c-di-GMP-I riboswitch aptamer: a 106-nucleotide RNA sequence from Candidatus Brocadia fulgida.

[Rfam]
RNA sequence: UAACGAUAAAGGCGAACCCUGAGUGAUCAGGGGACGCAAAGUAACAGGGUCUUUUGAAUAUCUUCCUGCAGAAGCAGGAAGAGAGAAAGAUAGCCUUACUGUCGAA
Number, nucleotide and partner (000 for none) at each position: 001u000002a000003a000004c000005g000006a000007u000008a000009a000010a000011g000012g037013c036014g000015a000016a000017c032018c031019c030020u029021g028022a027023g000024u000025g000026a000027u022028c021029a020030g019031g018032g017033g000034a000035c000036g013037c012038a000039a000040a100041g099042u098043a097044a000045c000046a096047g095048g094049g091050u090051c089052u000053u000054u086055u085056g000057a000058a000059u000060a000061u000062c000063u000064u000065c000066c000067u000068g000069c000070a000071g000072a000073a000074g000075c000076a000077g000078g000079a000080a000081g000082a000083g000084a000085g055086a054087a000088a000089g051090a050091u049092a000093g000094c048095c047096u046097u043098a042099c041100u040101g000102u000103c000104g000105a000106a000
About this RNA
GEMM was predicted in a large-scale screen for bacterial structured RNA regulatory elements. The match comes from Rfam's covariance-model search (53 bits). The family is grouped with related families in Rfam's "c-di-GMP_I riboswitch clan". A reference for the family is Weinberg et al. (2007), "Identification of 22 candidate structured RNAs in bacteria using the CMfinder comparative genomics pipeline", Nucleic Acids Res.